[Rfam]
RNA sequence: GGCACUUUUGAAAAAAUGUGCUGGCAGAUGUAAGUCCGACGUGCAUCACACAUGCACGGGUCCGAACGAUUUCGGGCCUCUGGGAUUAC
Number, nucleotide and partner (000 for none) at each position: 001g022002g021003c020004a019005c018006u000007u000008u000009u000010g000011a000012a000013a000014a000015a000016a000017u000018g005019u004020g003021c002022u001023g000024g000025c000026a000027g000028a000029u000030g089031u088032a087033a086034g000035u000036c084037c083038g000039a000040c000041g057042u056043g055044c054045a053046u000047c000048a000049c000050a000051c000052a000053u045054g044055c043056a042057c041058g079059g078060g077061u076062c075063c074064g073065a072066a071067c000068g000069a000070u000071u066072u065073c064074g063075g062076g061077c060078c059079u058080c000081u000082g000083g037084g036085a000086u033087u032088a031089c030

The record is an 89-nucleotide sequence, which matches "S15-Methanomicrobia ribosomal protein leader" in Rfam.
The sequence is in the family's curated seed alignment.
By type it is a cis-regulatory leader.